[Rfam]
A member of the RNA family "Eukaryotic small subunit ribosomal RNA" from Hemiselmis andersenii, 557 nucleotides of a longer RNA. The base pairs follow the family's consensus structure, which is taken from published work.

RNA sequence: AAAGUUGUUGCAGUUAAAAAGCUCGUAGUCGAAUGUAGAGUCUCAAACGCUGAGAUGUCUUUUUUUAUUAGGAGACAAUUUUUUUUGGCGUUUUAGAUUCUUUUUUACCGAUUACUAUUUGUUUUUAAUUAAACAAAUUUGGUAUAUCGGUAAUUUUUACUGUGAAUAAAUUAGAGUGUUCAUGGCAGGCCAAGGGCUUAAAUAUCUCAGCAUGGAAUAAUAGAAUAGGACUUCUGGUUCUAUUUUGUUGGUUUUUGGAGCCGAAGUAAUGAUUAAUAGGAAUAGUUGGGGGCACUCGUACUCCGUUGUCAGAGGUGAAAUUCUUGGAUUUACGGAAGACGAACAACUGCGAAAGCAUCUGCCAAGGAUGUUUUCAUUGAUCAAGAACGAAAGUUAGGGGAUCGAAGACGAUUAGAUACCGUCGUAGUCUUAACCAUAAACUAUGCCGACUGGGGAUUGGUAGAUGUAUCAAUUACGACUCUAUCAGCACCCUAUGAGAAAUCAAAGUCUCUGGGUUCUGGGGGGAGUAUGGUCGCAAGGCUGAAACUUAAAGGAAU
Numbered sequence: 001a002a003a004g005u006u007g008u009u010g011c012a013g014u015u016a017a018a019a020a021g022c023u024c025g026u027a028g029u030c031g032a033a034u035g036u037a038g039a040g041u042c043u044c045a046a047a048c049g050c051u052g053a054g055a056u057g058u059c060u061u062u063u064u065u066u067a068u069u070a071g072g073a074g075a076c077a078a079u080u081u082u083u084u085u086u087g088g089c090g091u092u093u094u095a096g097a098u099u100c101u102u103u104u105u106u107a108c109c110g111a112u113u114a115c116u117a118u119u120u121g122u123u124u125u126u127a128a129u130u131a132a133a134c135a136a137a138u139u140u141g142g143u144a145u146a147u148c149g150g151u152a153a154u155u156u157u158u159a160c161u162g163u164g165a166a167u168a169a170a171u172u173a174g175a176g177u178g179u180u181c182a183u184g185g186c187a188g189g190c191c192a193a194g195g196g197c198u199u200a201a202a203u204a205u206c207u208c209a210g211c212a213u214g215g216a217a218u219a220a221u222a223g224a225a226u227a228g229g230a231c232u233u234c235u236g237g238u239u240c241u242a243u244u245u246u247g248u249u250g251g252u253u254u255u256u257g258g259a260g261c262c263g264a265a266g267u268a269a270u271g272a273u274u275a276a277u278a279g280g281a282a283u284a285g286u287u288g289g290g291g292g293c294a295c296u297c298g299u300a301c302u303c304c305g306u307u308g309u310c311a312g313a314g315g316u317g318a319a320a321u322u323c324u325u326g327g328a329u330u331u332a333c334g335g336a337a338g339a340c341g342a343a344c345a346a347c348u349g350c351g352a353a354a355g356c357a358u359c360u361g362c363c364a365a366g367g368a369u370g371u372u373u374u375c376a377u378u379g380a381u382c383a384a385g386a387a388c389g390a391a392a393g394u395u396a397g398g399g400g401a402u403c404g405a406a407g408a409c410g411a412u413u414a415g416a417u418a419c420c421g422u423c424g425u426a427g428u429c430u431u432a433a434c435c436a437u438a439a440a441c442u443a444u445g446c447c448g449a450c451u452g453g454g455g456a457u458u459g460g461u462a463g464a465u466g467u468a469u470c471a472a473u474u475a476c477g478a479c480u481c482u483a484u485c486a487g488c489a490c491c492c493u494a495u496g497a498g499a500a501a502u503c504a505a506a507g508u509c510u511c512u513g514g515g516u517u518c519u520g521g522g523g524g525g526a527g528u529a530u531g532g533u534c535g536c537a538a539g540g541c542u543g544a545a546a547c548u549u550a551a552a553g554g555a556a557u
Stems, first nucleotide, its partner, number of pairs: 011520003019517001021388001023386002028381003279375004283370002286367002291363004297341002302336005308330001312323003349356002393434006403427001407423004445516003448509003452492003457487008466479002496503002522549003531542004
The organism belongs to Hemiselmis, within Eukaryota. Its family is annotated with structural constituent of ribosome and ribosome in the Gene Ontology.